Record summary
Rfam assigns this 120-nucleotide RNA sequence from Zingiber officinale to the family "MIR396 microRNA precursor family". Pairs were carried over by alignment from the consensus structure, which was predicted with WAR. A reference for the family is Jones-Rhoades and Bartel (2004), "Computational identification of plant microRNAs and their targets, including a stress-induced miRNA", Mol Cell.
RNA sequence: CUUUGUUAUCUUCCACAGCUUUCUUGAACUGCAAUGCCCCUCGCAAAUUCUGUCUAGCUUUCUUGGUGUUGCGCAUGUUUGCAAAUGGCAGUUCAAUAAAGCUGUGGGAAAUCACAGAGA
Number, nucleotide and partner (000 for none) at each position: 001c000002u000003u117004u116005g115006u114007u000008a000009u000010c000011u000012u000013c107014c106015a105016c000017a103018g102019c101020u100021u099022u098023c000024u096025u095026g094027a093028a000029c091030u090031g089032c088033a000034a000035u000036g000037c000038c000039c000040c000041u000042c000043g000044c000045a000046a000047a000048u000049u000050c000051u000052g000053u000054c000055u000056a000057g000058c000059u000060u000061u000062c000063u000064u000065g000066g000067u000068g000069u000070u000071g000072c000073g000074c000075a000076u000077g000078u000079u000080u000081g000082c000083a000084a000085a000086u000087g000088g032089c031090a030091g029092u000093u027094c026095a025096a024097u000098a022099a021100a020101g019102c018103u017104g000105u015106g014107g013108g000109a000110a000111a000112u000113c000114a006115c005116a004117g003118a000119g000120a000